[Rfam]
RNA sequence: GGGGGCCUGGGGAUGGCUGCUGGCGGCUGCAUCUCAGCCGGGUGCCUGCUGGCCUCACCCGCGCCCCAGAUCAAUCCCCCCAGCGAGCUCCCCGCUGGGGUUCCUCCUGUGCAGUAACAGGUGUGAGCAUCCAUGCAGCGUUUUGAUGGUCAUGUAUGAUACUGCAUACAAUG
Numbered sequence: 001g002g003g004g005g006c007c008u009g010g011g012g013a014u015g016g017c018u019g020c021u022g023g024c025g026g027c028u029g030c031a032u033c034u035c036a037g038c039c040g041g042g043u044g045c046c047u048g049c050u051g052g053c054c055u056c057a058c059c060c061g062c063g064c065c066c067c068a069g070a071u072c073a074a075u076c077c078c079c080c081c082a083g084c085g086a087g088c089u090c091c092c093c094g095c096u097g098g099g100g101u102u103c104c105u106c107c108u109g110u111g112c113a114g115u116a117a118c119a120g121g122u123g124u125g126a127g128c129a130u131c132c133a134u135g136c137a138g139c140g141u142u143u144u145g146a147u148g149g150u151c152a153u154g155u156a157u158g159a160u161a162c163u164g165c166a167u168a169c170a171a172u173g
Stems, first nucleotide, its partner, number of pairs: 003066004008061003015054004019049002022046003025039005078100003082096004108168009118158002124152003128148004135142001

This 173-nucleotide RNA sequence from Chauna torquata belongs to the Rfam family "Small Cajal body specific RNA 16". From the family's description: scaRNAs are a specific class of small nuclear RNAs which localise to the Cajal bodies and guide the modification of RNA polymerase II transcribed spliceosomal RNAs U1, U2, U4, U5 and U12. A search with the family's covariance model found it, with a score of 118 bits. The base pairs follow the family's consensus structure, which was predicted with RNAfold. The family's RNA type in Rfam is small Cajal body RNA.